This 86-nucleotide sequence from Musa acuminata belongs to the Rfam family "Small nucleolar RNA SNORD25". The family is grouped with related families in Rfam's "SNORD25 clan". The organism belongs to Musa acuminata, within Eukaryota. Its family is annotated with nucleolus and RNA processing in the Gene Ontology. A reference for the family is Tycowski et al. (1996), "A mammalian gene with introns instead of exons generating stable RNA products", Nature. A search with the family's covariance model found it, with a score of 85 bits. By type it is a C/D-box small nucleolar RNA.
RNA sequence: GACAACGAUGAUGAGCCUACUAGACCUGUAAUGAUUAUUGCAGAUAUGAUUGCAUAAUCAAAGAGCAUCUAAGGGACUGAGUUGUU
Numbered sequence: 001g002a003c004a005a006c007g008a009u010g011a012u013g014a015g016c017c018u019a020c021u022a023g024a025c026c027u028g029u030a031a032u033g034a035u036u037a038u039u040g041c042a043g044a045u046a047u048g049a050u051u052g053c054a055u056a057a058u059c060a061a062a063g064a065g066c067a068u069c070u071a072a073g074g075g076a077c078u079g080a081g082u083u084g085u086u
Base pairs, nucleotide, nucleotide: 002085003084004083005082006081